[Rfam]
RNA sequence: GGCCGGCGACCCAACGGCCUGCCCGAUCCCCGGGCAUGGGGUCAAUCCCAUUGCCGUCGGUUCGGCGGAUGU
Numbered sequence: 001g002g003c004c005g006g007c008g009a010c011c012c013a014a015c016g017g018c019c020u021g022c023c024c025g026a027u028c029c030c031c032g033g034g035c036a037u038g039g040g041g042u043c044a045a046u047c048c049c050a051u052u053g054c055c056g057u058c059g060g061u062u063c064g065g066c067g068g069a070u071g072u
Base pairs, nucleotide, nucleotide: 007071008070018039019038020036021035023033024032025031051069052068055065
A member of the RNA family "Pseudomonas sRNA P10" from Pseudomonas sp. Boi14, 72 nucleotides long. Rfam 15.1 lists 62 matches to the family in 42 species. Pairs were carried over by alignment from the consensus structure, which was predicted with WAR. NCBI's taxonomy places the organism under Bacteria, Pseudomonadati, Pseudomonadota, Pseudomonadaceae, Pseudomonas. The family's RNA type in Rfam is small RNA.